[Rfam]
RNA: Tryptophan operon leader
RNA sequence: AUCAAUUGGUGGUGGCACUUCCCAAAAUAGCGGGUGGUGUGAAGUUCUGUGUCGUUGUAAAACACAAGAUUAAACAAGAAGCCCGCAACUAUGCGGGCUUUUUUGU
Number, nucleotide and partner (000 for none) at each position: 001a000002u000003c000004a000005a000006u000007u000008g000009g048010u000011g046012g045013u000014g000015g040016c039017a038018c037019u036020u000021c034022c033023c032024a000025a000026a000027a000028u000029a000030g000031c000032g023033g022034g021035u000036g019037g018038u017039g016040u015041g000042a000043a000044g000045u012046u011047c000048u009049g000050u000051g000052u000053c000054g000055u000056u000057g000058u000059a000060a000061a000062a000063c000064a000065c000066a000067a000068g000069a000070u000071u000072a000073a000074a000075c000076a000077a000078g000079a000080a099081g098082c097083c096084c095085g094086c093087a092088a000089c000090u000091a000092u087093g086094c085095g084096g083097g082098c081099u080100u000101u000102u000103u000104u000105g000106u000